The family of this 139-nucleotide sequence from Marmota monax is "Small nucleolar RNA SNORA3/SNORA45 family".
Rfam's curators write: The members of this family belong to the H/ACA class of snoRNAs which are thought to guide the sites of modification of uridines to pseudouridines. This family includes mouse snoMBI-28 and human homologues ACA3 (SNORA3) and ACA3-2 (SNORA45). Both ACA3 and ACA3-2 share the same host gene. MBI-28, ACA3 and ACA3-2 are all predicted to guide the pseudouridylation of residues in 28S rRNA.
Clan: SNORA3 clan.
NCBI's taxonomy places the organism under Eukaryota, Opisthokonta, Craniata, Vertebrata, Marmota.
Gene Ontology terms of the family: nucleolus and RNA processing.
Rfam classes the family as an H/ACA-box small nucleolar RNA.
The match comes from Rfam's covariance-model search (102 bits).

RNA sequence: GCUGAGACUAGAGUCACAUACUGACACAGAACUUGUCCUGGUGUGCUACAGAUCUCAGAGAGAAUUUGCUGGUCUUGAUUCACUGGUGGGAAGGAGGGGGCAGUCGGUGUCCUCACUGGUGCCCAGAUCAGAAACAUAC
Numbered sequence: 001g002c003u004g005a006g007a008c009u010a011g012a013g014u015c016a017c018a019u020a021c022u023g024a025c026a027c028a029g030a031a032c033u034u035g036u037c038c039u040g041g042u043g044u045g046c047u048a049c050a051g052a053u054c055u056c057a058g059a060g061a062g063a064a065u066u067u068g069c070u071g072g073u074c075u076u077g078a079u080u081c082a083c084u085g086g087u088g089g090g091a092a093g094g095a096g097g098g099g100g101c102a103g104u105c106g107g108u109g110u111c112c113u114c115a116c117u118g119g120u121g122c123c124c125a126g127a128u129c130a131g132a133a134a135c136a137u138a139c
Base pairs, nucleotide, nucleotide: 002058003057004056005055006054008051009050012047013046015045016044017043018042019041023037024036025035026034069131070130071129072128073127074126075125077123081121082120083119084118085117086116088114089113090112